A member of the RNA family "tRNA" from Powellomyces hirtus, 66 nucleotides long. It is annotated as a transfer RNA. The source organism's lineage runs through Eukaryota, Fungi, Chytridiomycotina, Chytridiomycetes and Powellomyces. From the family's description: Transfer RNA (tRNA) molecules are approximately 80 nucleotides in length. Their secondary structure includes four short double-helical elements and three loops (D, anti-codon, and T loops). Further hydrogen bonds mediate the characteristic L-shaped molecular structure. tRNAs have two regions of fundamental functional importance: the anti-codon, which is responsible for specific mRNA codon recognition, and the 3' end, to which the tRNAs corresponding amino acid is attached (by aminoacyl-tRNA synthetases). tRNAs cope with the degeneracy of the genetic code in two manners: having more than one tRNA (with a specific anti-codon) for a particular amino acid; and 'wobble' base-pairing, i.e. permitting non-standard base-pairing at the 3rd anti-codon position.
RNA sequence: GGUGUAGCCAAAUUGGUAAGGCAAUGGUUUUUGGUGCCAUGAUUUGUAGGUUCGAGUCCUGCCACC
Numbered sequence: 001g002g003u004g005u006a007g008c009c010a011a012a013u014u015g016g017u018a019a020g021g022c023a024a025u026g027g028u029u030u031u032u033g034g035u036g037c038c039a040u041g042a043u044u045u046g047u048a049g050g051u052u053c054g055a056g057u058c059c060u061g062c063c064a065c066c
Base pairs, nucleotide, nucleotide: 001066002065003064004063007022008021009020024040025039026038027037028036046062047061048060049059050058